Rfam assigns this 87-nucleotide sequence from Aceticella autotrophica to the family "c-di-GMP-I riboswitch aptamer".
About the family: GEMM was predicted in a large-scale screen for bacterial structured RNA regulatory elements.
NCBI's taxonomy places the organism under Bacteria, Clostridia, Thermoanaerobacterales, Thermoanaerobacteraceae, Aceticella.
A search with the family's covariance model found it, with a score of 86 bits.

[Rfam]
RNA sequence: UUCUGAAAAAGGCAAACUUAGAGAAAUCUAAGGACGCAAAAUUAUGGGCCUAAGGCGAUUAAUCGCUAUGGCUGCCAGGUUGCCAGG
Number, nucleotide and partner (000 for none) at each position: 001u000002u000003c000004u000005g000006a000007a000008a000009a000010a000011g000012g037013c036014a000015a000016a000017c032018u031019u030020a029021g028022a027023g000024a000025a000026a000027u022028c021029u020030a019031a018032g017033g000034a000035c000036g013037c012038a000039a000040a081041a080042u079043u078044a000045u077046g076047g075048g072049c071050c070051u000052a000053a000054g000055g066056c065057g064058a063059u000060u000061a000062a000063u058064c057065g056066c055067u000068a000069u000070g050071g049072c048073u000074g000075c047076c046077a045078g043079g042080u041081u040082g000083c000084c000085a000086g000087g000